RNA sequence: GGCGUAAAGCGCGCGCAGGUGGACUAUUAAGUUAGCCAUGAAAGCUCCCGGCUAAACUGGGAGAGGCUGGUUGAUACUGGUAGUCUUGAGUGAGUGAGAGGGAAGUGGAAUUCCGCGUGUAGUGGUGAAAUGCGUAGAGAUGCGGAGGAACACCAGAGGCGAAGGCGGCUUCCUGGCACUUGACUGACACUGAGGCGCGAAAGCAUGGGUAGCGAACGGGAUUAGAAACCCCGGUAGUCCAUGCCGUAAACGAUGUUCACUAGUCGUUCGGAGUCCUACGGGGCUUUGGGUGACGAAGCAAACGCGAUAAGUGAACCGCCUGGGGAGUACGGUCGCAAGGCUAAAACUCAAAGGAAU
Numbered sequence: 001g002g003c004g005u006a007a008a009g010c011g012c013g014c015g016c017a018g019g020u021g022g023a024c025u026a027u028u029a030a031g032u033u034a035g036c037c038a039u040g041a042a043a044g045c046u047c048c049c050g051g052c053u054a055a056a057c058u059g060g061g062a063g064a065g066g067c068u069g070g071u072u073g074a075u076a077c078u079g080g081u082a083g084u085c086u087u088g089a090g091u092g093a094g095u096g097a098g099a100g101g102g103a104a105g106u107g108g109a110a111u112u113c114c115g116c117g118u119g120u121a122g123u124g125g126u127g128a129a130a131u132g133c134g135u136a137g138a139g140a141u142g143c144g145g146a147g148g149a150a151c152a153c154c155a156g157a158g159g160c161g162a163a164g165g166c167g168g169c170u171u172c173c174u175g176g177c178a179c180u181u182g183a184c185u186g187a188c189a190c191u192g193a194g195g196c197g198c199g200a201a202a203g204c205a206u207g208g209g210u211a212g213c214g215a216a217c218g219g220g221a222u223u224a225g226a227a228a229c230c231c232c233g234g235u236a237g238u239c240c241a242u243g244c245c246g247u248a249a250a251c252g253a254u255g256u257u258c259a260c261u262a263g264u265c266g267u268u269c270g271g272a273g274u275c276c277u278a279c280g281g282g283g284c285u286u287u288g289g290g291u292g293a294c295g296a297a298g299c300a301a302a303c304g305c306g307a308u309a310a311g312u313g314a315a316c317c318g319c320c321u322g323g324g325g326a327g328u329a330c331g332g333u334c335g336c337a338a339g340g341c342u343a344a345a346a347c348u349c350a351a352a353g354g355a356a357u
Stems, first nucleotide, its partner, number of pairs: 001320003009317001011198004016192001018191003022085007030078002032074007045063007089185003092181005100174007107151001111147008122133003159166002203244006212238002217233004255316006263294012298305002322349003331342004